[Rfam]
RNA sequence: UCUGUGAAUUAGGUAGUUUCAUGUUGUUGGGCUUUUCAUUUCGAACAAGAACAUCCAACUACCUGAUUUACUGC
Numbered sequence: 001u002c003u004g005u006g007a008a009u010u011a012g013g014u015a016g017u018u019u020c021a022u023g024u025u026g027u028u029g030g031g032c033u034u035u036u037c038a039u040u041u042c043g044a045a046c047a048a049g050a051a052c053a054u055c056c057a058a059c060u061a062c063c064u065g066a067u068u069u070a071c072u073g074c
Stems, first nucleotide, its partner, number of pairs: 004071015022053004027048003